Background
Group II catalytic intron D1-D4-7: a 149-nucleotide RNA from Desulfuromonas sp. AOP6. The literature on the family includes a 2001 paper in Trends Genet by Bonen and Vogel, "The ins and outs of group II introns". Rfam links the family to the GO term Group II intron splicing. About the family: Group II introns are found in rRNA, tRNA and mRNA of organelles in fungi, plants and protists, and also in mRNA in bacteria. The base pairs follow the family's consensus structure. Lineage of the source: Bacteria > Thermodesulfobacteriota > Desulfuromonadia > Desulfuromonadaceae > Desulfuromonas.
[Rfam]
RNA sequence: CCUGUUGUUCGGCCAACAGUAGCCUAAGGGUGGUGCGUCACUGGUAACGGUGAGGUGCUGAGCGCCCUGAUAAUGUACCCCUGCAUUUGCAGUUCUUGUCCACCGUGAGGUCACAGGAAGAUUCUGCCAGCGACAAGGCGGAUGAGGGG
Numbered sequence: 001c002c003u004g005u006u007g008u009u010c011g012g013c014c015a016a017c018a019g020u021a022g023c024c025u026a027a028g029g030g031u032g033g034u035g036c037g038u039c040a041c042u043g044g045u046a047a048c049g050g051u052g053a054g055g056u057g058c059u060g061a062g063c064g065c066c067c068u069g070a071u072a073a074u075g076u077a078c079c080c081c082u083g084c085a086u087u088u089g090c091a092g093u094u095c096u097u098g099u100c101c102a103c104c105g106u107g108a109g110g111u112c113a114c115a116g117g118a119a120g121a122u123u124c125u126g127c128c129a130g131c132g133a134c135a136a137g138g139c140g141g142a143u144g145a146g147g148g149g
Base pairs, nucleotide, nucleotide: 002019003018004017005016006015007014027068028067029066030065031064032059033058034057035056036055038053039052040051041050042049043048081092082091083090084089093119094118095117096116103110104109123142124141125140126139127138128137